[Rfam]
RNA sequence: ACUUCUUGAAAGACAUGGGUAGUGAGAUGUUUUGUUAAUUUUGUCUCACUACCUUGUCUUUCAUGGAGGG
Numbered sequence: 001a002c003u004u005c006u007u008g009a010a011a012g013a014c015a016u017g018g019g020u021a022g023u024g025a026g027a028u029g030u031u032u033u034g035u036u037a038a039u040u041u042u043g044u045c046u047c048a049c050u051a052c053c054u055u056g057u058c059u060u061u062c063a064u065g066g067a068g069g070g
Stems, first nucleotide, its partner, number of pairs: 008062008017054003021050009
A member of the RNA family "mir-71 microRNA precursor family" from Zophobas morio, 70 nucleotides long. Rfam 15.1 lists 372 matches to the family in 291 species. Its family is annotated with RISC complex and miRNA-mediated post-transcriptional gene silencing in the Gene Ontology. The family's consensus secondary structure was predicted with RNAalifold. For this family Rfam cites "Direct sequencing and expression analysis of a large number of miRNAs in Aedes aegypti and a multi-species survey of novel mosquito miRNAs" (Li et al., BMC Genomics, 2009).